A member of the RNA family "tRNA" from Globodera rostochiensis, 83 nucleotides long.
Rfam's curators write: Transfer RNA (tRNA) molecules are approximately 80 nucleotides in length.
The organism belongs to Globodera, within Eukaryota.
By type it is a transfer RNA.
[Rfam]
RNA sequence: GCAUGUGUGGCCGAGUGGUUAAGGCGUUGCGAUCUACGUCGCAAAGGGAAUUUCCCGCGCAGGUUCGAAUCCUGUCACAUGCA
Number, nucleotide and partner (000 for none) at each position: 001g082002c081003a080004u079005g078006u077007g076008u000009g000010g025011c024012c023013g000014a000015g000016u000017g000018g000019u000020u000021a000022a000023g012024g011025c010026g000027u044028u043029g042030c041031g040032a039033u038034c000035u000036a000037c000038g033039u032040c031041g030042c029043a028044a027045a000046g000047g000048g000049a000050a000051u000052u000053u000054c000055c000056c000057g000058c000059g075060c074061a073062g072063g071064u000065u000066c000067g000068a000069a000070u000071c063072c062073u061074g060075u059076c007077a006078c005079a004080u003081g002082c001083a000